[Rfam]
RNA sequence: GGGAAAGAAGACCCUGUUGAGCUUGACUCUAGUCCGACUUUGUGAAAUGACUUGAGAGGUGUAGGAUAAGUGGGUGCCCUCACGGGCGCAAGUGAAAUACCACUACUUUUAACGUUAUUUUACUUAUUCCGUGGGUCAGAAGCGGGGCAUGUCCCCUCCUUUUGGCUCCAAGGCCCGGUCUUACCGGGCCGAUCCGGGCGGAAGACAUUGUCAGGUGGGGAGUUUGGCUGGGGCGGCACAUCUGUUAAAAGAUAACGCAGGUGUCCCCUAAGAUGAGCUCAACGAGAACAGAAAUCUCGUGUGGAACAAAAGGGUAAAAGCUCGUUUGAUUCUGAUUUCCAGGACGAAUACGAACCGUGAAAGCGUGGCCUAUCGACCCUUUAGAACUUCGGAGUUUGAAGCUAGAGGUGUCAGAAAAGUUACCACAGGGAUAACUGGCUUGUGGCAGCCAAGCGUUCAUAGCGACGUUGCUUUUUGAUCCUUCGAUGUCGGCUCUUCCUAUCAUUGUGAAGUAGAAUUCACCAAGUGUUGGAUUGUUCACCCACCAAUAGGGAACGUGAGCUGGGUUUAGACCGUCGUGAGACAGGUUAGUUUUACCCU
Numbered sequence: 001g002g003g004a005a006a007g008a009a010g011a012c013c014c015u016g017u018u019g020a021g022c023u024u025g026a027c028u029c030u031a032g033u034c035c036g037a038c039u040u041u042g043u044g045a046a047a048u049g050a051c052u053u054g055a056g057a058g059g060u061g062u063a064g065g066a067u068a069a070g071u072g073g074g075u076g077c078c079c080u081c082a083c084g085g086g087c088g089c090a091a092g093u094g095a096a097a098u099a100c101c102a103c104u105a106c107u108u109u110u111a112a113c114g115u116u117a118u119u120u121u122a123c124u125u126a127u128u129c130c131g132u133g134g135g136u137c138a139g140a141a142g143c144g145g146g147g148c149a150u151g152u153c154c155c156c157u158c159c160u161u162u163u164g165g166c167u168c169c170a171a172g173g174c175c176c177g178g179u180c181u182u183a184c185c186g187g188g189c190c191g192a193u194c195c196g197g198g199c200g201g202a203a204g205a206c207a208u209u210g211u212c213a214g215g216u217g218g219g220g221a222g223u224u225u226g227g228c229u230g231g232g233g234c235g236g237c238a239c240a241u242c243u244g245u246u247a248a249a250a251g252a253u254a255a256c257g258c259a260g261g262u263g264u265c266c267c268c269u270a271a272g273a274u275g276a277g278c279u280c281a282a283c284g285a286g287a288a289c290a291g292a293a294a295u296c297u298c299g300u301g302u303g304g305a306a307c308a309a310a311a312g313g314g315u316a317a318a319a320g321c322u323c324g325u326u327u328g329a330u331u332c333u334g335a336u337u338u339c340c341a342g343g344a345c346g347a348a349u350a351c352g353a354a355c356c357g358u359g360a361a362a363g364c365g366u367g368g369c370c371u372a373u374c375g376a377c378c379c380u381u382u383a384g385a386a387c388u389u390c391g392g393a394g395u396u397u398g399a400a401g402c403u404a405g406a407g408g409u410g411u412c413a414g415a416a417a418a419g420u421u422a423c424c425a426c427a428g429g430g431a432u433a434a435c436u437g438g439c440u441u442g443u444g445g446c447a448g449c450c451a452a453g454c455g456u457u458c459a460u461a462g463c464g465a466c467g468u469u470g471c472u473u474u475u476u477g478a479u480c481c482u483u484c485g486a487u488g489u490c491g492g493c494u495c496u497u498c499c500u501a502u503c504a505u506u507g508u509g510a511a512g513u514a515g516a517a518u519u520c521a522c523c524a525a526g527u528g529u530u531g532g533a534u535u536g537u538u539c540a541c542c543c544a545c546c547a548a549u550a551g552g553g554a555a556c557g558u559g560a561g562c563u564g565g566g567u568u569u570a571g572a573c574c575g576u577c578g579u580g581a582g583a584c585a586g587g588u589u590a591g592u593u594u595u596a597c598c599c600u
Base pairs, nucleotide, nucleotide: 001600002599003598005595006594013429014428015427016426018425019424020421021420022419023418024417026223027222028221029220033215034214036212037211038210042123043122044121045120046119047118048117049116050115051114052112053111054110055109056108057107058106069104070103071102072101073100076087077086127203128202129201130200131199137196139194140193144155145154146153147152172190173189174188175187176186226239227237228236229235240262241261242260243259244258245257265368266367273325274324275323276322277321278320279305280304282300283299284298285297286296287295306315307314330354331353332352335349336348337347338346356365357364358363379407380406381405382404383403384402387401388400389399390398438479440477442476444472445471446470447469448468449467453463454462490565491563492562493561494560495557496554497553498552499551500550503528504527507522508521509520510519511518530544531543532542534540571589572588573587574586575584576583577582
Eukaryotic large subunit ribosomal RNA: a 600-nucleotide part of an RNA from Aegilops tauschii. Gene Ontology terms of the family: structural constituent of ribosome and ribosome. A search with the family's covariance model found it, with a score of 3048 bits.